[Rfam]
RNA sequence: CGUCGAUCAUUUUUGUGGAUUAGCAAUUUUGUUCUCGAAUAAUUGCAUAGUCACAAAAGUGAUGGACGU
Number, nucleotide and partner (000 for none) at each position: 001c068002g067003u066004c065005g000006a000007u062008c061009a060010u059011u058012u057013u056014u055015g054016u053017g052018g051019a000020u000021u000022a000023g046024c045025a044026a043027u042028u041029u000030u000031g000032u000033u000034c000035u000036c000037g000038a000039a000040u000041a028042a027043u026044u025045g024046c023047a000048u000049a000050g000051u018052c017053a016054c015055a014056a013057a012058a011059g010060u009061g008062a007063u000064g000065g004066a003067c002068g001069u000
Record summary
The record is a 69-nucleotide RNA sequence from Brugia malayi, which matches "mir-153 microRNA precursor family" in Rfam. Rfam links the family to the GO terms RISC complex and miRNA-mediated post-transcriptional gene silencing. The literature on the family includes a 2009 paper in Mol Reprod Dev by Tesfaye et al., "Identification and expression profiling of microRNAs during bovine oocyte maturation using heterologous approach". The base pairs follow the family's consensus structure, which was predicted with RNAalifold. The organism belongs to Brugia, within Eukaryota.